[Rfam]
RNA: TPP riboswitch aptamer (THI element)
Organism: Staphylococcus epidermidis
RNA sequence: UGAACGCACUAGGGGUGUAUUCUUUACUGAGAUGAGGCCAACCUCAAACCCUUCGAACCUGAUCUAGCUAGUUACUAGCGUAGGAAAGUGUUGUUAUACAUCU
Numbered sequence: 001u002g003a004a005c006g007c008a009c010u011a012g013g014g015g016u017g018u019a020u021u022c023u024u025u026a027c028u029g030a031g032a033u034g035a036g037g038c039c040a041a042c043c044u045c046a047a048a049c050c051c052u053u054c055g056a057a058c059c060u061g062a063u064c065u066a067g068c069u070a071g072u073u074a075c076u077a078g079c080g081u082a083g084g085a086a087a088g089u090g091u092u093g094u095u096a097u098a099c100a101u102c103u
Stems, first nucleotide, its partner, number of pairs: 006091005011052004016046001017027003034045004058084004064078004